[Rfam]
RNA sequence: CUGGAACCUGGUUCAAGUAAUCCAGGAUAGGCUUUCUGUGUCUGACCUGGCCUAUGCUUGAUUACUUGCACCGGGGGACAG
Numbered sequence: 001c002u003g004g005a006a007c008c009u010g011g012u013u014c015a016a017g018u019a020a021u022c023c024a025g026g027a028u029a030g031g032c033u034u035u036c037u038g039u040g041u042c043u044g045a046c047c048u049g050g051c052c053u054a055u056g057c058u059u060g061a062u063u064a065c066u067u068g069c070a071c072c073g074g075g076g077g078a079c080a081g
Stems, first nucleotide, its partner, number of pairs: 002080002007075006014068009024058002027055007

Record summary: Rfam assigns this 81-nucleotide RNA sequence from Myripristis murdjan to the family "mir-26 microRNA precursor family". Its family is annotated with miRNA-mediated post-transcriptional gene silencing and RISC complex in the Gene Ontology.